[Rfam]
RNA: c-di-AMP riboswitch aptamer (ydaO/yuaA leader)
Organism: Paenibacillus phyllosphaerae
RNA sequence: ACUCGGAGUACGCUUAAUUCUCGUGUCUCUAUGGCAUGAAGAAGCGGGGGAACCACUUUCAAUCGUGCUUGCAGCGGACCGGGUCUGCAGCAAGGUCAUCCGAUUGGGAAGCUUGCAGGCUUGAGGAUUCACGCCUGCGGCAGGGGCGAAUCGUUACGCAUCGUAACGUAGGGAACCAUCUAUCCCGAGUCCGUCAGCUAACCUCGUCAGCAGAAGAUGGGUCUG
Numbered sequence: 001a002c003u004c005g006g007a008g009u010a011c012g013c014u015u016a017a018u019u020c021u022c023g024u025g026u027c028u029c030u031a032u033g034g035c036a037u038g039a040a041g042a043a044g045c046g047g048g049g050g051a052a053c054c055a056c057u058u059u060c061a062a063u064c065g066u067g068c069u070u071g072c073a074g075c076g077g078a079c080c081g082g083g084u085c086u087g088c089a090g091c092a093a094g095g096u097c098a099u100c101c102g103a104u105u106g107g108g109a110a111g112c113u114u115g116c117a118g119g120c121u122u123g124a125g126g127a128u129u130c131a132c133g134c135c136u137g138c139g140g141c142a143g144g145g146g147c148g149a150a151u152c153g154u155u156a157c158g159c160a161u162c163g164u165a166a167c168g169u170a171g172g173g174a175a176c177c178a179u180c181u182a183u184c185c186c187g188a189g190u191c192c193g194u195c196a197g198c199u200a201a202c203c204u205c206g207u208c209a210g211c212a213g214a215a216g217a218u219g220g221g222u223c224u225g
Stems, first nucleotide, its partner, number of pairs: 012211003018043003044207006054143001144192003152168004171186004